[Rfam]
Rfam assigns this 52-nucleotide sequence from Tieghemostelium lacteum to the family "Class I RNA from Dictyostelium". Dictyostelium Class I RNA was first reported for Aspegren et al. 2004 in Dictyostelium discoideum. The base pairs follow the family's consensus structure, which is taken from published work. The organism belongs to Tieghemostelium, within Eukaryota. On this family, see Aspegren et al., Nucleic Acids Res 2004: "Novel non-coding RNAs in Dictyostelium discoideum and their expression during development".

RNA sequence: GAACUUCUUACAGCAAUUAAAACAUUCAAUUAAUGGAAAACCUCAGGUUCUG
Number, nucleotide and partner (000 for none) at each position: 001g050002a049003a048004c047005u046006u045007c000008u000009u000010a000011c000012a000013g000014c000015a000016a000017u000018u000019a000020a000021a000022a000023c000024a000025u000026u000027c000028a000029a000030u000031u000032a000033a000034u000035g000036g000037a000038a000039a000040a000041c000042c000043u000044c000045a006046g005047g004048u003049u002050c001051u000052g000